[Rfam]
RNA sequence: CUACGUAUUCCUACAAAGCAGGGCCUUGUUUAAGACCCGUAGAACAAUUUUUGGAGGCUCUCAAGGAAUGGGGGCCA
Numbered sequence: 001c002u003a004c005g006u007a008u009u010c011c012u013a014c015a016a017a018g019c020a021g022g023g024c025c026u027u028g029u030u031u032a033a034g035a036c037c038c039g040u041a042g043a044a045c046a047a048u049u050u051u052u053g054g055a056g057g058c059u060c061u062c063a064a065g066g067a068a069u070g071g072g073g074g075c076c077a
Base pairs, nucleotide, nucleotide: 021038022037023036025034026033027032056076057075058074059073060072061071062070063069
Dot-bracket structure: ....................(((.(((....))).))).................((((((((.....)))))))).

Annotation: This 77-nucleotide RNA sequence from Toxocara canis belongs to the Rfam family "SmY spliceosomal RNA". The literature on the family includes a 2007 paper in RNA by MacMorris et al., "A novel family of C. elegans snRNPs contains proteins associated with trans-splicing". The family's RNA type in Rfam is spliceosomal small nuclear RNA. The match comes from Rfam's covariance-model search (53 bits).